[Rfam]
Nucleotides: 078
Stems, first nucleotide, its partner, number of pairs: 004074003009069006016062005022056003026053008
Number, partner (000 for none) and nucleotide at each position: 001000c002000u003000u004074u005073c006072u007000g008000c009069a010068c011067a012066g013065g014064u015000u016062g017061g018060g019059a020058u021000a022056g023055g024054u025000a026053g027052c028051a029050a030049u031048g032047c033046u034000g035000u036000g037000c038000c039000u040000c041000u042000u043000a044000g045000a046033g047032g048031u049030a050029u051028u052027g053026c054024a055023c056022u057000u058020g059019u060018c061017c062016c063000g064014g065013c066012c067011u068010g069009u070000u071000g072006a073005g074004g075000a076000c077000u078000g
Rfam assigns this 78-nucleotide sequence from Chanos chanos to the family "mir-92 microRNA precursor family". On this family, see Mourelatos et al., Genes Dev 2002: "miRNPs: a novel class of ribonucleoproteins containing numerous microRNAs". From the family's description: This family represents the microRNA precursor mir-92. Human miR-92 has two predicted hairpin precursor sequences: mir-92-1 on chromosome 13 and mir-92-2 on chromosome X. miR-92 has also been cloned from mouse embryonic stem cells. The mature sequence is excised from the 3' arm of the hairpin. Lineage of the source: Eukaryota > Gnathostomata > Neopterygii > Chanoidei > Chanos.